[Rfam]
RNA sequence: AUCUGUUAUAUUUGAUGUGAUAGUCCUUUUAGCCAUCUUUAGCUCCCGGUUUUUAGGACUAUCUUUUUUUCACCUAUUCUU
Number, nucleotide and partner (000 for none) at each position: 001a000002u000003c000004u000005g000006u000007u000008a000009u000010a000011u000012u000013u000014g000015a000016u000017g000018u000019g063020a062021u061022a060023g059024u058025c057026c056027u055028u000029u000030u000031a051032g050033c049034c048035a000036u000037c000038u000039u000040u000041a000042g000043c000044u000045c000046c000047c000048g034049g033050u032051u031052u000053u000054u000055a027056g026057g025058a024059c023060u022061a021062u020063c019064u000065u000066u000067u000068u000069u000070u000071c000072a000073c000074c000075u000076a000077u000078u000079c000080u000081u000
Rfam assigns this 81-nucleotide RNA sequence from Pelagibacterales bacterium SAG-MED09 to the family "rhtB sRNA". A reference for the family is Meyer et al. (2009), "Identification of candidate structured RNAs in the marine organism 'Candidatus Pelagibacter ubique'", BMC Genomics. A search with the family's covariance model found it, with a score of 68 bits.